About this RNA: mir-147 microRNA precursor family: a 77-nucleotide RNA from Ursus americanus. The family's consensus secondary structure was predicted with RNAalifold. On this family, see Kawaji et al., BMC Genomics 2008: "Hidden layers of human small RNAs". Taxonomically the source falls in Ursus (Eukaryota, Eumetazoa, Bilateria, Boreoeutheria).

[Rfam]
RNA sequence: AUGGAAUCUAGUGAACAUUGCUGCACAAACUAGAUGAUGGAUACCAGUGUGUGGAAAUGCUUCUGCCUACAUUUUAG
Dot-bracket structure: .(.((((.((((((.((((.(((((((..((..............))))))))).))))..)).).))).)))).).
Numbered sequence: 001a002u003g004g005a006a007u008c009u010a011g012u013g014a015a016c017a018u019u020g021c022u023g024c025a026c027a028a029a030c031u032a033g034a035u036g037a038u039g040g041a042u043a044c045c046a047g048u049g050u051g052u053g054g055a056a057a058u059g060c061u062u063c064u065g066c067c068u069a070c071a072u073u074u075u076a077g
Stems, first nucleotide, its partner, number of pairs: 002076001004074004009069003012065001013063002016059004021054007030047002